Rfam assigns this 73-nucleotide RNA sequence from Actinomortierella ambigua to the family "tRNA". Rfam links the family to the GO term triplet codon-amino acid adaptor activity.

RNA sequence: GGGGCAAUAGCUCAUUUGGUAGAGCGCUCGCUUCGCAUGCGAGAGGCACCGGGUUCGACUCCCGGUUGCUCCA
Numbered sequence: 001g002g003g004g005c006a007a008u009a010g011c012u013c014a015u016u017u018g019g020u021a022g023a024g025c026g027c028u029c030g031c032u033u034c035g036c037a038u039g040c041g042a043g044a045g046g047c048a049c050c051g052g053g054u055u056c057g058a059c060u061c062c063c064g065g066u067u068g069c070u071c072c073a
Stems, first nucleotide, its partner, number of pairs: 001072007010025004027043005049065005